[Rfam]
RNA sequence: UCGAAGGUUGUUGGGUGGUCUGCGCAGCGAGUGAUGAUCCAUCGCGUUGCCAAACCGCAAAAAAAAGCCCCGACAAGCGGGGCUU
Numbered sequence: 001u002c003g004a005a006g007g008u009u010g011u012u013g014g015g016u017g018g019u020c021u022g023c024g025c026a027g028c029g030a031g032u033g034a035u036g037a038u039c040c041a042u043c044g045c046g047u048u049g050c051c052a053a054a055c056c057g058c059a060a061a062a063a064a065a066a067g068c069c070c071c072g073a074c075a076a077g078c079g080g081g082g083c084u085u
Stems, first nucleotide, its partner, number of pairs: 015058003019054001024050002027047002031045003066084007